Notes
This 106-nucleotide sequence from Sphaeramia orbicularis belongs to the Rfam family "Vault RNA". It scores 67 bits against the family's covariance model. Taxonomically the source falls in Sphaeramia (Eukaryota, Craniata, Neoteleostei, Kurtiformes).
[Rfam]
RNA sequence: GCACUGGUGUAGCUCAGUGGUUACUUCGACCAUCAAUUCUCUCUCAGAAUUCGAACCGUCUCUAUCCCUCCGUGGGAUCGAACCACGGGCACUGUCCAGUGCUUUU
Numbered sequence: 001g002c003a004c005u006g007g008u009g010u011a012g013c014u015c016a017g018u019g020g021u022u023a024c025u026u027c028g029a030c031c032a033u034c035a036a037u038u039c040u041c042u043c044u045c046a047g048a049a050u051u052c053g054a055a056c057c058g059u060c061u062c063u064a065u066c067c068c069u070c071c072g073u074g075g076g077a078u079c080g081a082a083c084c085a086c087g088g089g090c091a092c093u094g095u096c097c098a099g100u101g102c103u104u105u106u
Stems, first nucleotide, its partner, number of pairs: 002101006012090004017086004025082005
The family's consensus secondary structure is taken from published work.